[Rfam]
RNA: mir-338 microRNA precursor family
RNA sequence: CCAGGAGCAAAAUCCCGGUGUUGAAUGUGUGAGCUCAGGCCAACUCCAGCAUCUGUGAUUUUGUUGCUGG
Numbered sequence: 001c002c003a004g005g006a007g008c009a010a011a012a013u014c015c016c017g018g019u020g021u022u023g024a025a026u027g028u029g030u031g032a033g034c035u036c037a038g039g040c041c042a043a044c045u046c047c048a049g050c051a052u053c054u055g056u057g058a059u060u061u062u063g064u065u066g067c068u069g070g
Stems, first nucleotide, its partner, number of pairs: 006065005012059003015055001017053007
Dot-bracket structure: .....(((((.((((.(((((((.......................))))))).).))).))))).....